Shown here is a 103-nucleotide RNA sequence from Pseudomonas sp. SDI, a member of the family "Pseudomonas rnk leader". The literature on the family includes a 2010 paper in Genome Biol by Naville and Gautheret, "Premature terminator analysis sheds light on a hidden world of bacterial transcriptional attenuation". The source organism's lineage runs through Bacteria, Pseudomonadota, Gammaproteobacteria, Pseudomonadales and Pseudomonas.
RNA sequence: CGCUCGGGCGCUUGUGUAUUUGCCGGGCUGUGGUAGUGUCGAUCCUCAUCGGCCUUGCCGAAAUACCUGAAAACCCCGCCCUUGGGCGGGGUUUUGCUUUAUG
Number, nucleotide and partner (000 for none) at each position: 001c000002g053003c052004u000005c051006g050007g049008g000009c000010g000011c000012u000013u000014g000015u000016g000017u000018a000019u000020u036021u035022g034023c033024c032025g031026g000027g000028c000029u000030g000031u025032g024033g023034u022035a021036g020037u000038g000039u000040c000041g000042a000043u000044c000045c000046u000047c000048a000049u007050c006051g005052g003053c002054c000055u000056u000057g000058c000059c000060g000061a000062a000063a000064u000065a000066c000067c000068u000069g000070a095071a094072a093073a092074c091075c090076c089077c088078g087079c086080c085081c000082u000083u000084g000085g080086g079087c078088g077089g076090g075091g074092u073093u072094u071095u070096g000097c000098u000099u000100u000101a000102u000103g000

The base pairs follow the family's consensus structure, which is taken from published work.
It is annotated as a cis-regulatory leader.